Z30 small nucleolar RNA: a 99-nucleotide sequence from Pleuronectes platessa. By type it is a C/D-box small nucleolar RNA.
RNA sequence: CUGCAGUGAUGAGUCAUGAGUUGAAUGACCUGGUAUUGCUUCCCUCCGGGGAAAGCUCUGACCAGGAAAUGAUCUCACAUUAAUCUUCUCUCUGAGCAG
Numbered sequence: 001c002u003g004c005a006g007u008g009a010u011g012a013g014u015c016a017u018g019a020g021u022u023g024a025a026u027g028a029c030c031u032g033g034u035a036u037u038g039c040u041u042c043c044c045u046c047c048g049g050g051g052a053a054a055g056c057u058c059u060g061a062c063c064a065g066g067a068a069a070u071g072a073u074c075u076c077a078c079a080u081u082a083a084u085c086u087u088c089u090c091u092c093u094g095a096g097c098a099g
Base pairs, nucleotide, nucleotide: 003097004096038056039055040054041053
Rfam links the family to the GO terms RNA processing and nucleolus. Taxonomically the source falls in Pleuronectes (Eukaryota, Chordata, Teleostei, Clupeocephala).